[Rfam]
RNA sequence: AGGAGGAACCACCUCAGUGGCGGGGCCAGCUCUCCAGCCCUGGAGUCAGCUCCCACAGUAACUGCGGAGCUCUCAGCCUGCAAGGGCCUGGAUGCUCCUGCAGGGG
Numbered sequence: 001a002g003g004a005g006g007a008a009c010c011a012c013c014u015c016a017g018u019g020g021c022g023g024g025g026c027c028a029g030c031u032c033u034c035c036a037g038c039c040c041u042g043g044a045g046u047c048a049g050c051u052c053c054c055a056c057a058g059u060a061a062c063u064g065c066g067g068a069g070c071u072c073u074c075a076g077c078c079u080g081c082a083a084g085g086g087c088c089u090g091g092a093u094g095c096u097c098c099u100g101c102a103g104g105g106g
Stems, first nucleotide, its partner, number of pairs: 002098004007093001009090001012085003019078003023074003028071006035064002040058003
The record is a 106-nucleotide RNA sequence from Canis lupus, which matches "mir-8834 microRNA precursor family" in Rfam. Pairs were carried over by alignment from the consensus structure, which was predicted with RNAalifold. The family has 2 seed sequences and 13,926 matches in Rfam 15.1. NCBI's taxonomy places the organism under Eukaryota, Opisthokonta, Gnathostomata, Laurasiatheria, Canis lupus. The match comes from Rfam's covariance-model search (61 bits).